[Rfam]
RNA sequence: CCAGAGGCGAACUAGGGUUCCGGUCCACCUUGCGUGGAUGGCUGGUCCGAGAGUUUUCCGGCCCUAAGGACAGGGUUACACGGCGGGAGAAAAGCCCGGGAGAC
Numbered sequence: 001c002c003a004g005a006g007g008c009g010a011a012c013u014a015g016g017g018u019u020c021c022g023g024u025c026c027a028c029c030u031u032g033c034g035u036g037g038a039u040g041g042c043u044g045g046u047c048c049g050a051g052a053g054u055u056u057u058c059c060g061g062c063c064c065u066a067a068g069g070a071c072a073g074g075g076u077u078a079c080a081c082g083g084c085g086g087g088a089g090a091a092a093a094g095c096c097c098g099g100g101a102g103a104c
Stems, first nucleotide, its partner, number of pairs: 007058001009056004015048002020045002022042001023039006060077006079099001081102001085097003

Shown here is a 104-nucleotide RNA from Pseudomonas knackmussii, a member of the family "Guanidine-I riboswitch aptamer". Rfam describes the family as follows. This family represents a conserved RNA structure found upstream of the ykkC and yxkD genes in Bacillus subtilis and related genes in other bacteria. The function of this family is unclear although it has been suggested that it may function to switch on efflux pumps and detoxification systems in response to harmful environmental molecules. Gene Ontology term of the family: regulation of gene expression. Taxonomically the source falls in Pseudomonas knackmussii (Bacteria, Pseudomonadati, Gammaproteobacteria, Pseudomonadales).